[Rfam]
RNA sequence: GACAGUUUGCCAACACUCUGGUGCCUAAUCAAGGAUAUAUUUAUAUGUCCUUGGAACUAUAUUAGGUUCCUAUUUUGGUGCAAACAAGAGAGAACUGCUACUUACUCACCAAGAUAUGCUUUUUAUAUAACUAAUACUUCGGUUUUGGUUCCAGAUAGUUAUAUUGGUCCAUUUCAAUAGCUAACAU
Dot-bracket structure: ......(((..........((.((.((((.((((..............))))........)))).)).))..........))).............(((.........((((.(((.(((....................................)))))).))))...........)))......
Numbered sequence: 001g002a003c004a005g006u007u008u009g010c011c012a013a014c015a016c017u018c019u020g021g022u023g024c025c026u027a028a029u030c031a032a033g034g035a036u037a038u039a040u041u042u043a044u045a046u047g048u049c050c051u052u053g054g055a056a057c058u059a060u061a062u063u064a065g066g067u068u069c070c071u072a073u074u075u076u077g078g079u080g081c082a083a084a085c086a087a088g089a090g091a092g093a094a095c096u097g098c099u100a101c102u103u104a105c106u107c108a109c110c111a112a113g114a115u116a117u118g119c120u121u122u123u124u125a126u127a128u129a130a131c132u133a134a135u136a137c138u139u140c141g142g143u144u145u146u147g148g149u150u151c152c153a154g155a156u157a158g159u160u161a162u163a164u165u166g167g168u169c170c171a172u173u174u175c176a177a178u179a180g181c182u183a184a185c186a187u
Stems, first nucleotide, its partner, number of pairs: 007083003020070002023067002026064004031052004097181003109167004114162003118159003